[Rfam]
RNA sequence: GGAUAUUUGAGAGGAGCUGUCCUUAGUACGAGAGGACCGGGAUGGACGAACCGCUGGUGUAUCUGUUGUACUACCAAGUGCAUAGCAGAGUAGCCAAGUUCGGAAGGGAUAAACGCUGAAGGCAUCUAAGCGUGAAGCCUCCCUCAAGAUAAGAUAUCCCAUAGCGCAAGCUAGUAAGACCCCUUGAAGACUACAAGGUAGAUAGGUUGGAGGUGUAAGUGUGGUAACACAUUUAGCUGACCAAUACUAAUAGGUCGAGG
Numbered sequence: 001g002g003a004u005a006u007u008u009g010a011g012a013g014g015a016g017c018u019g020u021c022c023u024u025a026g027u028a029c030g031a032g033a034g035g036a037c038c039g040g041g042a043u044g045g046a047c048g049a050a051c052c053g054c055u056g057g058u059g060u061a062u063c064u065g066u067u068g069u070a071c072u073a074c075c076a077a078g079u080g081c082a083u084a085g086c087a088g089a090g091u092a093g094c095c096a097a098g099u100u101c102g103g104a105a106g107g108g109a110u111a112a113a114c115g116c117u118g119a120a121g122g123c124a125u126c127u128a129a130g131c132g133u134g135a136a137g138c139c140u141c142c143c144u145c146a147a148g149a150u151a152a153g154a155u156a157u158c159c160c161a162u163a164g165c166g167c168a169a170g171c172u173a174g175u176a177a178g179a180c181c182c183c184u185u186g187a188a189g190a191c192u193a194c195a196a197g198g199u200a201g202a203u204a205g206g207u208u209g210g211a212g213g214u215g216u217a218a219g220u221g222u223g224g225u226a227a228c229a230c231a232u233u234u235a236g237c238u239g240a241c242c243a244a245u246a247c248u249a250a251u252a253g254g255u256c257g258a259g260g
Base pairs, nucleotide, nucleotide: 001159002158003157004156005155006154007153008152011145012144013143014142017045018044019043020042021041022040023039047102048101049100050099051098055096056095057094062089063088064087065086066085067082068081069080070079071078072077106140107139108138113133114132115131116130117129162173163172164171175258178256179255180254181253182198183197184196185195186194203249204248205247206245207244208243209242210241212238213237219232220231221230222229223228
Notes
This 260-nucleotide part of an RNA from Natranaerovirga pectinivora belongs to the Rfam family "Bacterial large subunit ribosomal RNA". The base pairs follow the family's consensus structure, which is taken from published work. Taxonomically the source falls in Natranaerovirga (Bacteria, Clostridia, Lachnospirales, Natranaerovirgaceae).